[Rfam]
RNA sequence: CCAAUUGGAUACUCUUGGGAGGUUACUCUCCCAGGCUCUUGUCCAGAUGGUGUAGGAGAGAAGCGCCGGGCUCUGCCCUAUGAUGUACAGUCCCCUUCUACAGCGUUGGAGGUGAAGCUGGGCUUUGUGUCUGCACCUGCAAAUUCCAAUGACUUCUCAGAGUCUUGUGGGCAAUGACUGAGGUGACAAACCAUGAAGGAAACAAAC
Numbered sequence: 001c002c003a004a005u006u007g008g009a010u011a012c013u014c015u016u017g018g019g020a021g022g023u024u025a026c027u028c029u030c031c032c033a034g035g036c037u038c039u040u041g042u043c044c045a046g047a048u049g050g051u052g053u054a055g056g057a058g059a060g061a062a063g064c065g066c067c068g069g070g071c072u073c074u075g076c077c078c079u080a081u082g083a084u085g086u087a088c089a090g091u092c093c094c095c096u097u098c099u100a101c102a103g104c105g106u107u108g109g110a111g112g113u114g115a116a117g118c119u120g121g122g123c124u125u126u127g128u129g130u131c132u133g134c135a136c137c138u139g140c141a142a143a144u145u146c147c148a149a150u151g152a153c154u155u156c157u158c159a160g161a162g163u164c165u166u167g168u169g170g171g172c173a174a175u176g177a178c179u180g181a182g183g184u185g186a187c188a189a190a191c192c193a194u195g196a197a198g199g200a201a202a203c204a205a206a207c
Base pairs, nucleotide, nucleotide: 001109002108003107004106005105006103007044008043009042010041011040014035015034016033018029019028020027021026048100049099050098056094058092059091060088065086066085068081136199137198138197140195141194153185155183156182157181158180162172163171164170165169

The family of this 207-nucleotide sequence from Sciurus carolinensis is "Small nucleolar RNA SNORA73 family". The family is grouped with related families in Rfam's "snR30-U17 clan". A reference for the family is Enright et al. (1996), "5'ETS rRNA processing facilitated by four small RNAs: U14, E3, U17, and U3", RNA. Its family is annotated with RNA processing and nucleolus in the Gene Ontology. Rfam's curators write: U17 (SNORA73A and SNORA73B) also known as E1 belongs to the H/ACA class of small nucleolar RNAs (snoRNAs). Taxonomically the source falls in Sciurus (Eukaryota, Teleostomi, Sarcopterygii, Glires). Pairs were carried over by alignment from the consensus structure, which is taken from published work.